[Rfam]
RNA sequence: UUUGUGGGGAAUGUUGGCUGGCUCGAGGCUUUCAUACAUGAUAACCAAAGGGAAAGGGAAAAACAAAGAGUAUGUAAGGCUUCGGACCAGGCUUCAUUCCCCUCAAA
Number, nucleotide and partner (000 for none) at each position: 001u107002u106003u105004g104005u000006g102007g101008g100009g099010a098011a097012u096013g095014u000015u000016g092017g000018c090019u089020g088021g087022c000023u000024c084025g083026a082027g000028g000029c000030u000031u000032u000033c000034a000035u000036a000037c000038a000039u000040g000041a000042u000043a000044a000045c000046c000047a000048a000049a000050g000051g000052g000053a000054a000055a000056g000057g000058g000059a000060a000061a000062a000063a000064c000065a000066a000067a000068g000069a000070g000071u000072a000073u000074g000075u000076a000077a000078g000079g000080c000081u000082u026083c025084g024085g000086a000087c021088c020089a019090g018091g000092c016093u000094u000095c013096a012097u011098u010099c009100c008101c007102c006103u000104c004105a003106a002107a001
mir-166 microRNA precursor family: a 107-nucleotide RNA from Corymbia citriodora. The family has 31 seed sequences and 2,599 matches in Rfam 15.1. Rfam links the family to the GO terms RISC complex and miRNA-mediated post-transcriptional gene silencing. Rfam's curators write: This family represents the plant microRNA (miRNA) precursor mir-166. The match comes from Rfam's covariance-model search (80 bits). For this family Rfam cites "MicroRNAs in plants" (Reinhart et al., Genes Dev, 2002). The family's consensus secondary structure was predicted with PFOLD.